[Rfam]
RNA sequence: GGUCACGAGCGUCGACCCAAAGGCCCCGGCUGGUCGACCGGCAACCCCCACCACGCAGGGGUGCCCCGGGUGAGGACCAGGCGUCGCGGAGCGCGGCGCAAGACCGUGGC
Numbered sequence: 001g002g003u004c005a006c007g008a009g010c011g012u013c014g015a016c017c018c019a020a021a022g023g024c025c026c027c028g029g030c031u032g033g034u035c036g037a038c039c040g041g042c043a044a045c046c047c048c049c050a051c052c053a054c055g056c057a058g059g060g061g062u063g064c065c066c067c068g069g070g071u072g073a074g075g076a077c078c079a080g081g082c083g084u085c086g087c088g089g090a091g092c093g094c095g096g097c098g099c100a101a102g103a104c105c106g107u108g109g110c
Stems, first nucleotide, its partner, number of pairs: 001078004009039001011038006022031002040065003045061003049055001081099008
RNA: SAM (S-adenosyl methionine) riboswitch aptamer
Organism: Quadrisphaera granulorum